[Rfam]
RNA: Molybdenum/Tungsten riboswitch aptamer (Moco RNA motif)
RNA sequence: CAAUCCACAAUUAUCCAAUCUAUUUUUACCUAAUUGCGCAUGCAAAUGGUAAGUAGACUAUGGGUUUCAUGGGAAACGAUGGAGCCUUCCGUGUUUGAAAAGGAGAAUGGCUUUGUGUA
Numbered sequence: 001c002a003a004u005c006c007a008c009a010a011u012u013a014u015c016c017a018a019u020c021u022a023u024u025u026u027u028a029c030c031u032a033a034u035u036g037c038g039c040a041u042g043c044a045a046a047u048g049g050u051a052a053g054u055a056g057a058c059u060a061u062g063g064g065u066u067u068c069a070u071g072g073g074a075a076a077c078g079a080u081g082g083a084g085c086c087u088u089c090c091g092u093g094u095u096u097g098a099a100a101a102g103g104a105g106a107a108u109g110g111c112u113u114u115g116u117g118u119a
Base pairs, nucleotide, nucleotide: 003113006110011105014104015103016102019057020056021055022054023053024052025051028050029049030048034045035044036043037042062087063086064085065084066083067082068081069080070079072077088098089097